[Rfam]
RNA sequence: GGCGAUAAACGGCCGUUGCAAUAAACCUUUCGGACCCGGGGGCAGUACCCGGCGGCUCCACCCAAACCCGGCGGGAACGGGUUUCGGCGGGGCCGAACUAGGAUCGACGAGGGUGUAAAGAGCGCGCUUUUGCCCGUUAUGGUUCCGUCGUUAUCGGGCCAUUCCAUAGUUGCCAACGACAACUAUGCUCCGGUUGCUCAAGCCGCGUAA
Dot-bracket structure: (((((........((((........(((.(((...(((((.......)))))(((((((.............................)))))))............)))))).......)))).....)))))((.(........).))............................................................

About this RNA:
Shown here is a 210-nucleotide RNA from Rugositalea oryzae, a member of the family "permuted transfer-messenger RNA". The family's consensus secondary structure is taken from published work. Bacterial tmRNA, also known as 10Sa RNA or SsrA, is named for its dual tRNA and mRNA-like properties. Its role is to liberate the mRNA from a stalled ribosome. To accomplish this part of the tmRNA is used as a reading frame that ends in a translation stop signal. The broken mRNA is replaced in the ribosome by the tmRNA and translation of the tmRNA leads to addition of a proteolysis tag to the incomplete protein enabling recognition by a protease. The family's RNA type in Rfam is non-coding RNA gene.